The family of this 69-nucleotide RNA sequence from Saccharicrinis carchari is "DUF805 RNA". Rfam classes the family as a cis-regulatory element. It scores 70 bits against the family's covariance model.
[Rfam]
RNA sequence: AAAAUGUGGAGGCUGGAAACCACUAUAAAAAACAGGGCGGAACCGAAAAGCUUUACGAGUAGGAUUUUU
Numbered sequence: 001a002a003a004a005u006g007u008g009g010a011g012g013c014u015g016g017a018a019a020c021c022a023c024u025a026u027a028a029a030a031a032a033c034a035g036g037g038c039g040g041a042a043c044c045g046a047a048a049a050g051c052u053u054u055a056c057g058a059g060u061a062g063g064a065u066u067u068u069u
Stems, first nucleotide, its partner, number of pairs: 006023004036052003043063002